[Rfam]
RNA: S15-Flavobacteria ribosomal protein leader
Organism: Aquimarina agarilytica
RNA sequence: UACAUUUGCAGCCUUGAAAGAAAAUCUUUCAAAUGCAUAAUAAUCAUUUAAAUAAUAUUGGAAUG
Numbered sequence: 001u002a003c004a005u006u007u008g009c010a011g012c013c014u015u016g017a018a019a020g021a022a023a024a025u026c027u028u029u030c031a032a033a034u035g036c037a038u039a040a041u042a043a044u045c046a047u048u049u050a051a052a053u054a055a056u057a058u059u060g061g062a063a064u065g
Stems, first nucleotide, its partner, number of pairs: 014032006